[Rfam]
RNA sequence: ACCAGGGGCCCUGGCAAGGGUCUCCGGAUCGCGCUCAGCCAACCAGCAGAGCCGUUCCGUGACUGUACUGCCCACAAGGCGGACUGACGAGGUUGCGACUGGAACGAGUCGUCCUGAGGGACGGGGAAGCGAUUAACGCAUCAGCUCGAGACGUCAGUACUGUCGUUACGCAAUGGCCGUGUGUCACUGCGUGUUGGAAUGCCACGAAUCAUUCCACAGUUUGCCAACUUCUC
Dot-bracket structure: ....((((((((....))))))))...(.((..(((.((......)).))).)).).((.(........(((.....))).(...(.((........................((.........))...)).)...)........)))........((...))...((((((.((((.....)))).)))))).............((.(........).))...........
RNA: sRNA regulator of biofilms A
Organism: Stutzerimonas stutzeri